[Rfam]
RNA sequence: UUAGCUGAUAUUUGUAUGGAAUGGGAUCGUUUGCGUACGUUUGCCGCUAGGGGCGCUGUUCCAACUGCAUACAAAAUUGGAUUA
Numbered sequence: 001u002u003a004g005c006u007g008a009u010a011u012u013u014g015u016a017u018g019g020a021a022u023g024g025g026a027u028c029g030u031u032u033g034c035g036u037a038c039g040u041u042u043g044c045c046g047c048u049a050g051g052g053g054c055g056c057u058g059u060u061c062c063a064a065c066u067g068c069a070u071a072c073a074a075a076a077u078u079g080g081a082u083u084a
Stems, first nucleotide, its partner, number of pairs: 007078003011075006018068001020066001022064001024062003028058002034052001036050001039047002
RNA: mir-2807 microRNA precursor family
Organism: Bombyx mori